Rfam assigns this 85-nucleotide RNA from Theropithecus gelada to the family "mir-4436 microRNA precursor family". Rfam links the family to the GO terms miRNA-mediated post-transcriptional gene silencing and RISC complex. Pairs were carried over by alignment from the consensus structure, which was predicted with RNAalifold. The source organism's lineage runs through Eukaryota, Metazoa, Chordata, Gnathostomata and Theropithecus. A search with the family's covariance model found it, with a score of 89 bits.
RNA sequence: GCCUCACUUUUCCACUUCUGCCUGCCCUGCCCUGCGAAUCUGCUCUGUGAUUUAGGCAGGGCAGGCAGAAGUGGACAAGUGAGGA
Numbered sequence: 001g002c003c004u005c006a007c008u009u010u011u012c013c014a015c016u017u018c019u020g021c022c023u024g025c026c027c028u029g030c031c032c033u034g035c036g037a038a039u040c041u042g043c044u045c046u047g048u049g050a051u052u053u054a055g056g057c058a059g060g061g062c063a064g065g066c067a068g069a070a071g072u073g074g075a076c077a078a079g080u081g082a083g084g085a
Base pairs, nucleotide, nucleotide: 002084003083004082005081006080007079008078009077011075012074013073014072015071016070017069018068019067021065022064023063024062025061026060027059028058029057030056031055036045037044